[Rfam]
RNA: Lysine riboswitch aptamer
Organism: Fictibacillus enclensis
RNA sequence: CGAUGAGGUAGAGGUCGCGGCUUUUAUUAGUAGGACGUACGAGAUGCAGAAAGACAUCAUAGACUCCGUGUGAAAGGAAAAGCUGCCGAAAUUCAUGUUUAUCUCUGGAAAUAUGAAUUGGGGCUGUUUUCGAAAAGGAACAGCACUGUCACGCUCACAUUACCGGUGAGUGGGAUGCGCUAUCUUACGG
Numbered sequence: 001c002g003a004u005g006a007g008g009u010a011g012a013g014g015u016c017g018c019g020g021c022u023u024u025u026a027u028u029a030g031u032a033g034g035a036c037g038u039a040c041g042a043g044a045u046g047c048a049g050a051a052a053g054a055c056a057u058c059a060u061a062g063a064c065u066c067c068g069u070g071u072g073a074a075a076g077g078a079a080a081a082g083c084u085g086c087c088g089a090a091a092u093u094c095a096u097g098u099u100u101a102u103c104u105c106u107g108g109a110a111a112u113a114u115g116a117a118u119u120g121g122g123g124c125u126g127u128u129u130u131c132g133a134a135a136a137g138g139a140a141c142a143g144c145a146c147u148g149u150c151a152c153g154c155u156c157a158c159a160u161u162a163c164c165g166g167u168g169a170g171u172g173g174g175a176u177g178c179g180c181u182a183u184c185u186u187a188c189g190g
Stems, first nucleotide, its partner, number of pairs: 006185006017086009033071001035069003039065001090119011120147002123144008149175002152172006